[Rfam]
RNA sequence: UGGGCAGUAUCAUUCGAACUGCACCUGCACGGCCUUUUAAAAUCAACAAAUUAAAAAUUUCUGCCUUGAUCCAGUAUUGGACGGGGACGGAGGG
Numbered sequence: 001u002g003g004g005c006a007g008u009a010u011c012a013u014u015c016g017a018a019c020u021g022c023a024c025c026u027g028c029a030c031g032g033c034c035u036u037u038u039a040a041a042a043u044c045a046a047c048a049a050a051u052u053a054a055a056a057a058u059u060u061c062u063g064c065c066u067u068g069a070u071c072c073a074g075u076a077u078u079g080g081a082c083g084g085g086g087a088c089g090g091a092g093g094g
Stems, first nucleotide, its partner, number of pairs: 002025002004022005010017002061090003064086005070081003